Background
The family of this 106-nucleotide RNA from Promicromonospora sukumoe is "TPP riboswitch aptamer (THI element)". Pairs were carried over by alignment from the consensus structure, which is taken from published work. About the family: Vitamin B(1) in its active form thiamin pyrophosphate (TPP) is an essential coenzyme that is synthesised by coupling of pyrimidine and thiazole moieties in bacteria. The previously detected thiamin-regulatory element, thi box was extended, resulting in a new, highly conserved RNA secondary structure, the THI element, which is widely distributed in eubacteria and also occurs in some archaea. Analysis of operon structures identified a large number of new candidate thiamin-regulated genes, mostly transporters, in various prokaryotic organisms. Its family is annotated with thiamine pyrophosphate binding in the Gene Ontology.
RNA sequence: UGGAAACGACAGGGGAGCGCCCCGACGGCGCUGAGAGUGCGGAUCACCGCAGACCCUUGAACCUGAUCCGGUUGACACCGGCGGAGGAAGUCGGAGGCACGAUGUU
Numbered sequence: 001u002g003g004a005a006a007c008g009a010c011a012g013g014g015g016a017g018c019g020c021c022c023c024g025a026c027g028g029c030g031c032u033g034a035g036a037g038u039g040c041g042g043a044u045c046a047c048c049g050c051a052g053a054c055c056c057u058u059g060a061a062c063c064u065g066a067u068c069c070g071g072u073u074g075a076c077a078c079c080g081g082c083g084g085a086g087g088a089a090g091u092c093g094g095a096g097g098c099a100c101g102a103u104g105u106u
Stems, first nucleotide, its partner, number of pairs: 007093004011057004017031005038051005062087003068081004